[Rfam]
Rfam assigns this 137-nucleotide RNA sequence from Ceratitis capitata to the family "Small nucleolar RNA psi18S-841/snoR66". The base pairs follow the family's consensus structure, which was predicted with RNAfold. About the family: psi18S-841 is a member of the H/ACA class of snoRNA. This family is responsible for guiding the modification of uridine 841 in Drosophila 18S rRNA to pseudouridine.
RNA sequence: UGCAAGGGCACUCUGUGUUAUCAUUUAAUAGUGUGAUAAAACAAUUUGUAACCUUGCCAAAGUAAAGCAGAAUUUGCUUCUCACUUCUUAACUGUAUAACUGGAAGAGAAGUGAUCAAGUUAUGUGACAAAUCUUAU
Number, nucleotide and partner (000 for none) at each position: 001u000002g057003c056004a055005a054006g053007g052008g000009c000010a049011c048012u000013c000014u043015g042016u041017g000018u039019u038020a037021u036022c035023a034024u000025u000026u000027a000028a000029u000030a000031g000032u000033g000034u023035g022036a021037u020038a019039a018040a000041a016042c015043a014044a000045u000046u000047u000048g011049u010050a000051a000052c007053c006054u005055u004056g003057c002058c000059a000060a000061a000062g000063u136064a135065a134066a000067g000068c126069a125070g000071a000072a123073u122074u000075u000076g120077c000078u000079u000080c000081u114082c113083a000084c111085u110086u109087c108088u107089u105090a000091a000092c102093u000094g000095u000096a000097u000098a000099a000100c000101u000102g092103g000104a000105a089106g000107a088108g087109a086110a085111g084112u000113g082114a081115u000116c000117a000118a000119g000120u076121u000122a073123u072124g000125u069126g068127a000128c000129a000130a000131a000132u000133c000134u065135u064136a063137u000